[Rfam]
RNA sequence: GCCAGACUGAAGACCGCGGCUCGUCAUUCAUACUUUCAGGUCCCACACUCGCUGUGGUCGUCCUUUCUUUCGUGACUGGGUUAAGGUCCGAGUCUUUCAAUCCCCUCAGGAACGUGUUUCUUGGCCUUCCUUAAACUCUCAAGGGGUUUGCUCUUGUAAACAUUCGAGCAGGGCUCAUCAUCAGAAAUCACUCUCCUCUCGAGUUGUCUGACUGGAUCGAUCGUGUUGGAACGGCUUCAUAUGGAUUGUCAUGCUACUCUUGACCGGACUCGUAGAUCAAACAGAUCGGUCCGAAGACAUCGAGCCGCCUCGACGAGGACCUUUCGCUCCUACAAGUUUCCCGGUCGAUUUGUUGCAACAUACUAGUUGACUGCCCGUUCUGGCUACGAUCCUCCAGUCAGCUCCACGAGGCGAGAUUGGGAACGAUGGGUGGGGAUAGCGAGGGCUGUCUGUUGGCCGACAGCCUUCGAUUUAGUGCAAUCCGCGGUGAGCGAGUUACUGCUCGCUCAACUCAAUUCGGACUACUCUUGGUCUGGC
Numbered sequence: 001g002c003c004a005g006a007c008u009g010a011a012g013a014c015c016g017c018g019g020c021u022c023g024u025c026a027u028u029c030a031u032a033c034u035u036u037c038a039g040g041u042c043c044c045a046c047a048c049u050c051g052c053u054g055u056g057g058u059c060g061u062c063c064u065u066u067c068u069u070u071c072g073u074g075a076c077u078g079g080g081u082u083a084a085g086g087u088c089c090g091a092g093u094c095u096u097u098c099a100a101u102c103c104c105c106u107c108a109g110g111a112a113c114g115u116g117u118u119u120c121u122u123g124g125c126c127u128u129c130c131u132u133a134a135a136c137u138c139u140c141a142a143g144g145g146g147u148u149u150g151c152u153c154u155u156g157u158a159a160a161c162a163u164u165c166g167a168g169c170a171g172g173g174c175u176c177a178u179c180a181u182c183a184g185a186a187a188u189c190a191c192u193c194u195c196c197u198c199u200c201g202a203g204u205u206g207u208c209u210g211a212c213u214g215g216a217u218c219g220a221u222c223g224u225g226u227u228g229g230a231a232c233g234g235c236u237u238c239a240u241a242u243g244g245a246u247u248g249u250c251a252u253g254c255u256a257c258u259c260u261u262g263a264c265c266g267g268a269c270u271c272g273u274a275g276a277u278c279a280a281a282c283a284g285a286u287c288g289g290u291c292c293g294a295a296g297a298c299a300u301c302g303a304g305c306c307g308c309c310u311c312g313a314c315g316a317g318g319a320c321c322u323u324u325c326g327c328u329c330c331u332a333c334a335a336g337u338u339u340c341c342c343g344g345u346c347g348a349u350u351u352g353u354u355g356c357a358a359c360a361u362a363c364u365a366g367u368u369g370a371c372u373g374c375c376c377g378u379u380c381u382g383g384c385u386a387c388g389a390u391c392c393u394c395c396a397g398u399c400a401g402c403u404c405c406a407c408g409a410g411g412c413g414a415g416a417u418u419g420g421g422a423a424c425g426a427u428g429g430g431u432g433g434g435g436a437u438a439g440c441g442a443g444g445g446c447u448g449u450c451u452g453u454u455g456g457c458c459g460a461c462a463g464c465c466u467u468c469g470a471u472u473u474a475g476u477g478c479a480a481u482c483c484g485c486g487g488u489g490a491g492c493g494a495g496u497u498a499c500u501g502c503u504c505g506c507u508c509a510a511c512u513c514a515a516u517u518c519g520g521a522c523u524a525c526u527c528u529u530g531g532u533c534u535g536g537c
Stems, first nucleotide, its partner, number of pairs: 001537004008530003013488007021078001023076005088520005100437004134148005149170005173431007192416003489508007